[Rfam]
RNA sequence: GGGGGGAGGUCGGGUGCUGGGCAGUGUCCCCGGCGCCCAUGCUCCCGGGCCUGCGCUGUUGGAUUCUCGCUCCUGGCCACGCAGCCCCUU
Numbered sequence: 001g002g003g004g005g006g007a008g009g010u011c012g013g014g015u016g017c018u019g020g021g022c023a024g025u026g027u028c029c030c031c032g033g034c035g036c037c038c039a040u041g042c043u044c045c046c047g048g049g050c051c052u053g054c055g056c057u058g059u060u061g062g063a064u065u066c067u068c069g070c071u072c073c074u075g076g077c078c079a080c081g082c083a084g085c086c087c088c089u090u
Base pairs, nucleotide, nucleotide: 001090002089003088004087005086006085009082010081012078013077017075019073020072021071024068026066027063028062030061031058032057033056034055035054036053041050042049043048
Shown here is a 90-nucleotide sequence from Canis lupus, a member of the family "mir-8799 microRNA precursor family". It scores 65 bits against the family's covariance model. Rfam links the family to the GO terms miRNA-mediated post-transcriptional gene silencing and RISC complex. The source organism's lineage runs through Eukaryota, Eutheria, Caniformia, Canis and Canis lupus.